The family of this 74-nucleotide sequence from Bos taurus is "mir-1247 microRNA precursor family".
RNA sequence: GCCGGGCGCACCCGUCCCGUGCGUCCCCGGACGUCGCUGUCUGCCCCGGGAACGUCGGGACUGGAGCGCCCGCG
Numbered sequence: 001g002c003c004g005g006g007c008g009c010a011c012c013c014g015u016c017c018c019g020u021g022c023g024u025c026c027c028c029g030g031a032c033g034u035c036g037c038u039g040u041c042u043g044c045c046c047c048g049g050g051a052a053c054g055u056c057g058g059g060a061c062u063g064g065a066g067c068g069c070c071c072g073c074g
Stems, first nucleotide, its partner, number of pairs: 003072007011064002014061003018057002022054003026050005033044002